[Rfam]
RNA: Nematode snoRNA ceN88
Organism: Dictyocaulus viviparus
RNA sequence: ACCCUUCCCUCUUGGCACUACUAUCUGUUGUUUGAUAGCAGUGUAUAUAUUGGAAGGUAGAUGAUGUCCAUUGGAUAUUCGGGUCACCUUCGGUGCUGUUUUUUAUCACGUCGAACAGUAUCAUCCUCUGGACUCGAAACAACC
Numbered sequence: 001a002c003c004c005u006u007c008c009c010u011c012u013u014g015g016c017a018c019u020a021c022u023a024u025c026u027g028u029u030g031u032u033u034g035a036u037a038g039c040a041g042u043g044u045a046u047a048u049a050u051u052g053g054a055a056g057g058u059a060g061a062u063g064a065u066g067u068c069c070a071u072u073g074g075a076u077a078u079u080c081g082g083g084u085c086a087c088c089u090u091c092g093g094u095g096c097u098g099u100u101u102u103u104u105a106u107c108a109c110g111u112c113g114a115a116c117a118g119u120a121u122c123a124u125c126c127u128c129u130g131g132a133c134u135c136g137a138a139a140c141a142a143c144c
Base pairs, nucleotide, nucleotide: 003057004056005055006054007053008052015044016043017042018041021038022037023036024035069074078138079137080136081135082134083133084132085131092122093121096118097117098116099115100114101113